[Rfam]
Nucleotides: 212
Base pairs, nucleotide, nucleotide: 001037002036003034005032007030013025014024017021042068043067044066045065047063048062050060052058077211078210079209080208081207096199097198098197099196100195101194102193103192104191105190106189107188109161110160111159112158119150120149122147123146124145125144126143129142130141131140132139133138163185164184165183166182168178169177
Number, partner (000 for none) and nucleotide at each position: 001037g002036c003034g004000a005032c006000c007030u008000u009000a010000c011000u012000u013025a014024a015000u016000a017021g018000g019000a020000u021017u022000a023000u024014u025013u026000u027000u028000a029000u030007a031000a032005g033000c034003u035000c036002g037001u038000a039000c040000c041000u042068c043067u044066g045065u046000a047063u048062u049000c050060u051000u052058g053000a054000a055000u056000c057000c058052u059000c060050a061000a062048g063047a064000g065045g066044c067043a068042g069000u070000a071000a072000c073000c074000c075000a076000u077211g078210u079209c080208u081207g082000g083000u084000u085000g086000a087000u088000g089000c090000a091000u092000c093000a094000u095000g096199a097198g098197c099196a100195u101194g102193u103192a104191g105190c106189c107188a108000g109161a110160g111159c112158g113000u114000g115000a116000u117000u118000a119150a120149c121000c122147g123146a124145g125144c126143c127000u128000u129142a130141u131140g132139g133138u134000u135000u136000c137000u138133g139132c140131c141130a142129u143126g144125g145124c146123u147122c148000a149120g150119u151000a152000g153000a154000g155000g156000a157000u158112c159111g160110u161109u162000g163185c164184c165183a166182g167000c168178c169177u170000a171000u172000c173000u174000g175000a176000c177169g178168g179000g180000u181000c182166u183165u184164g185163g186000c187000a188107u189106g190105g191104c192103u193102a194101c195100a196099u197098g198097u199096u200000u201000g202000u203000c204000a205000g206000a207081c208080a209079g210078a211077c212000a